[Rfam]
RNA sequence: UCUCGUUCUCAGGGCGGGGUGAAACUCCCCACCGGCGGUAAGAAGGUUCUCCUUCAAGCCCGCGAGCGCCUUUCCGUUCCAGCGGGAGGGGUCAGCAGAUUCGGUUGAAUUCCGAAGCCGACGGUCAUAGUCCGGAUGGAAGAGAACGGCG
Numbered sequence: 001u002c003u004c005g006u007u008c009u010c011a012g013g014g015c016g017g018g019g020u021g022a023a024a025c026u027c028c029c030c031a032c033c034g035g036c037g038g039u040a041a042g043a044a045g046g047u048u049c050u051c052c053u054u055c056a057a058g059c060c061c062g063c064g065a066g067c068g069c070c071u072u073u074c075c076g077u078u079c080c081a082g083c084g085g086g087a088g089g090g091g092u093c094a095g096c097a098g099a100u101u102c103g104g105u106u107g108a109a110u111u112c113c114g115a116a117g118c119c120g121a122c123g124g125u126c127a128u129a130g131u132c133c134g135g136a137u138g139g140a141a142g143a144g145a146a147c148g149g150c151g
Stems, first nucleotide, its partner, number of pairs: 003149008017029003031131002033120002035063004058118002066096002100116005122134003
Background:
A member of the RNA family "FMN riboswitch aptamer (RFN element)" from Kaistia sp. 32K, 151 nucleotides long. The base pairs follow the family's consensus structure, which is taken from published work. A search with the family's covariance model found it, with a score of 118 bits. Rfam describes the family as follows. The RFN element is a highly conserved domain that is found frequently in the 5'-untranslated regions of prokaryotic mRNAs that encode for flavin mononucleotide (FMN) biosynthesis and transport proteins.